[Rfam]
RNA sequence: CUGCUUUCAGGAUAAACAGAAUAAAGAUGUCAUGUUC
Number, nucleotide and partner (000 for none) at each position: 001c019002u018003g000004c000005u016006u015007u014008c000009a000010g000011g000012a000013u000014a007015a006016a005017c000018a002019g001020a000021a000022u000023a000024a000025a000026g000027a000028u000029g000030u000031c000032a000033u000034g000035u000036u000037c000
RNA: Renin stability regulatory element (REN-SRE)
Organism: Loxodonta africana